Shown here is a 116-nucleotide sequence, a member of the family "SAM-I/IV (S-adenosyl methionine) riboswitch aptamer".

RNA sequence: GUAGUACAUCACGAGCGACCAACUGGUCCGGCAACCGGGAUUUCCCACGGUGCCAUUUCGCGAAAUGCGAAAGAUGUGGUUACGCCAGCAGGCGUAGCAACGGGCUGGCUCAGUUG
Numbered sequence: 001g002u003a004g005u006a007c008a009u010c011a012c013g014a015g016c017g018a019c020c021a022a023c024u025g026g027u028c029c030g031g032c033a034a035c036c037g038g039g040a041u042u043u044c045c046c047a048c049g050g051u052g053c054c055a056u057u058u059c060g061c062g063a064a065a066u067g068c069g070a071a072a073g074a075u076g077u078g079g080u081u082a083c084g085c086c087a088g089c090a091g092g093c094g095u096a097g098c099a100a101c102g103g104g105c106u107g108g109c110u111c112a113g114u115u116g
Stems, first nucleotide, its partner, number of pairs: 006077005015029001017028004030054003035050003038046002079098008
The literature on the family includes a 2008 paper in RNA by Weinberg et al., "The aptamer core of SAM-IV riboswitches mimics the ligand-binding site of SAM-I riboswitches". The family is grouped with related families in Rfam's "SAM clan". Its family is annotated with S-adenosylmethionine metabolic process and regulation of gene expression in the Gene Ontology.